This 114-nucleotide sequence from Modestobacter versicolor belongs to the Rfam family "SAM (S-adenosyl methionine) riboswitch aptamer".
SAM-IV is a mRNA element that regulates gene expression via direct sensing of S-adenosylmethionine (SAM or AdoMet).
Gene Ontology terms of the family: regulation of gene expression and S-adenosylmethionine metabolic process.
Rfam 15.1 lists 2,360 matches to the family in 1,305 species.
Clan: SAM clan.
RNA sequence: GGUCACGAGUGCCAGCGCGAAGCCCCGGCUCGCUGGCCGGCAACCCUCCUCCGCGAGCGGGUGCCCCGGGUGACGACCUGGCGGUCGCAGUUCCGCGACCGCAAAGCGCGGACC
Numbered sequence: 001g002g003u004c005a006c007g008a009g010u011g012c013c014a015g016c017g018c019g020a021a022g023c024c025c026c027g028g029c030u031c032g033c034u035g036g037c038c039g040g041c042a043a044c045c046c047u048c049c050u051c052c053g054c055g056a057g058c059g060g061g062u063g064c065c066c067c068g069g070g071u072g073a074c075g076a077c078c079u080g081g082c083g084g085u086c087g088c089a090g091u092u093c094c095g096c097g098a099c100c101g102c103a104a105a106g107c108g109c110g111g112a113c114c
Stems, first nucleotide, its partner, number of pairs: 001078004009038001011037006021030002039065003044061003049055001081102008